[Rfam]
RNA: SAM (S-adenosyl methionine) riboswitch aptamer
Organism: Mycobacterium noviomagense
RNA sequence: CUUCACGAGAUGCCGUCGCCAAGCUCCGACUGGACGGCACGCCAACCCCACGCUCGUGGGUGGCUCGGAUGACGAAGCGGCCGACACCAACAGGUGUUCGGCAAGAGCGCCUC
Numbered sequence: 001c002u003u004c005a006c007g008a009g010a011u012g013c014c015g016u017c018g019c020c021a022a023g024c025u026c027c028g029a030c031u032g033g034a035c036g037g038c039a040c041g042c043c044a045a046c047c048c049c050a051c052g053c054u055c056g057u058g059g060g061u062g063g064c065u066c067g068g069a070u071g072a073c074g075a076a077g078c079g080g081c082c083g084a085c086a087c088c089a090a091c092a093g094g095u096g097u098u099c100g101g102c103a104a105g106a107g108c109g110c111c112u113c
Stems, first nucleotide, its partner, number of pairs: 001077004009040001012038006022031002041064003046060003050057002080102004084097005